[Rfam]
RNA sequence: GGGCUUUGAGGUGGAAAAAGCGUUCCCAUACGCCACACGCCUUCGGGUAGUGGGCAAAAGAGAUGCCGGGAGUGACGCUCCGGCCAAAGUCC
Numbered sequence: 001g002g003g004c005u006u007u008g009a010g011g012u013g014g015a016a017a018a019a020g021c022g023u024u025c026c027c028a029u030a031c032g033c034c035a036c037a038c039g040c041c042u043u044c045g046g047g048u049a050g051u052g053g054g055c056a057a058a059a060g061a062g063a064u065g066c067c068g069g070g071a072g073u074g075a076c077g078c079u080c081c082g083g084c085c086a087a088a089g090u091c092c
Stems, first nucleotide, its partner, number of pairs: 001092008011029004020078005031060001033053004065084005
Annotation: skipping-rope RNA: a 92-nucleotide RNA.